[Rfam]
RNA: U2 spliceosomal RNA
Organism: Trichoplusia ni
RNA sequence: AUGACUUCUGGAGACGUAGUAUCUGUUCUUUUCAGCUUAAUAUCUGAAAGUUCCCUCACUGAGGGACCAGUAUAUUAAACUGAUUUUUGUAAGCUGACGGGAUGUUCGGGGCUCGCUCCACUCCCGUCACGGGUCGGCCCGGUAUUGCAGUGCCGCCGGGAUCGGCCCACAUAAU
Numbered sequence: 001a002u003g004a005c006u007u008c009u010g011g012a013g014a015c016g017u018a019g020u021a022u023c024u025g026u027u028c029u030u031u032u033c034a035g036c037u038u039a040a041u042a043u044c045u046g047a048a049a050g051u052u053c054c055c056u057c058a059c060u061g062a063g064g065g066a067c068c069a070g071u072a073u074a075u076u077a078a079a080c081u082g083a084u085u086u087u088u089g090u091a092a093g094c095u096g097a098c099g100g101g102a103u104g105u106u107c108g109g110g111g112c113u114c115g116c117u118c119c120a121c122u123c124c125c126g127u128c129a130c131g132g133g134u135c136g137g138c139c140c141g142g143u144a145u146u147g148c149a150g151u152g153c154c155g156c157c158g159g160g161a162u163c164g165g166c167c168c169a170c171a172u173a174a175u
Base pairs, nucleotide, nucleotide: 007014008013030049031048032047033046034045035044052066053065054064055063056062057061096128097127098126099125100124101123102122108119109118110117111116131168132167133166134165135164136163138160139159140158141157142156143155